[Rfam]
RNA sequence: UGAGUCCACUACGAUGAAGGCAUAGCGAGCCACAUCGCCCCCGAGCCGUGCGCGGGCAUCCGCGAGGAGGUCAGCGAAGCGUCGGCAGGGGAAUGUGUAGGCCAGCCAUGGAGCCACGAAAUGGUUUAUAUCCCGGAUGCCGACGCGCUCCAGUACGUGGAAGGCAAUACGAGCGGGCGCGACAUCGCGAGUGCCUGCCGAUCCGGCGUGGUCGUAGAACC
Numbered sequence: 001u002g003a004g005u006c007c008a009c010u011a012c013g014a015u016g017a018a019g020g021c022a023u024a025g026c027g028a029g030c031c032a033c034a035u036c037g038c039c040c041c042c043g044a045g046c047c048g049u050g051c052g053c054g055g056g057c058a059u060c061c062g063c064g065a066g067g068a069g070g071u072c073a074g075c076g077a078a079g080c081g082u083c084g085g086c087a088g089g090g091g092a093a094u095g096u097g098u099a100g101g102c103c104a105g106c107c108a109u110g111g112a113g114c115c116a117c118g119a120a121a122u123g124g125u126u127u128a129u130a131u132c133c134c135g136g137a138u139g140c141c142g143a144c145g146c147g148c149u150c151c152a153g154u155a156c157g158u159g160g161a162a163g164g165c166a167a168u169a170c171g172a173g174c175g176g177g178c179g180c181g182a183c184a185u186c187g188c189g190a191g192u193g194c195c196u197g198c199c200g201a202u203c204c205g206g207c208g209u210g211g212u213c214g215u216a217g218a219a220c221c
Stems, first nucleotide, its partner, number of pairs: 012037005019031003023190001025188002039091004045086004049081002051076003055072003059068003110215001111213001113212006133206006139165003144159004170200002173198008